This 188-nucleotide sequence from Corynebacterium pilosum belongs to the Rfam family "c-di-AMP riboswitch aptamer (ydaO/yuaA leader)".
The pairing is the family consensus, mapped onto this sequence.
For this family Rfam cites "New RNA motifs suggest an expanded scope for riboswitches in bacterial genetic control" (Barrick et al., Proc Natl Acad Sci U S A, 2004).
RNA sequence: CACAUGAAACCAACAAACUUCAUAGGACAAGGAUGGGGAACCCACCGCGCACGACCACACCGGCCGAGCGCAUCGCAUCGCAGACCGCGGCGCUUGGGGUGAAGUCCAGAAAUUCUACUGGACCGGGCUUUUCCGAGACUCAGCCCGACCCCGACAGCUGACCCCGUAGGCGCACAAUGAGAGGAAAG
Dot-bracket structure: (.............................).((((((....((..................................................))(((.....((((..........))))..((((..............))))...))).........)))))).....................
Numbered sequence: 001c002a003c004a005u006g007a008a009a010c011c012a013a014c015a016a017a018c019u020u021c022a023u024a025g026g027a028c029a030a031g032g033a034u035g036g037g038g039a040a041c042c043c044a045c046c047g048c049g050c051a052c053g054a055c056c057a058c059a060c061c062g063g064c065c066g067a068g069c070g071c072a073u074c075g076c077a078u079c080g081c082a083g084a085c086c087g088c089g090g091c092g093c094u095u096g097g098g099g100u101g102a103a104g105u106c107c108a109g110a111a112a113u114u115c116u117a118c119u120g121g122a123c124c125g126g127g128c129u130u131u132u133c134c135g136a137g138a139c140u141c142a143g144c145c146c147g148a149c150c151c152c153g154a155c156a157g158c159u160g161a162c163c164c165c166g167u168a169g170g171c172g173c174a175c176a177a178u179g180a181g182a183g184g185a186a187a188g
Stems, first nucleotide, its partner, number of pairs: 001031001033167006043096002097152003105122004125146004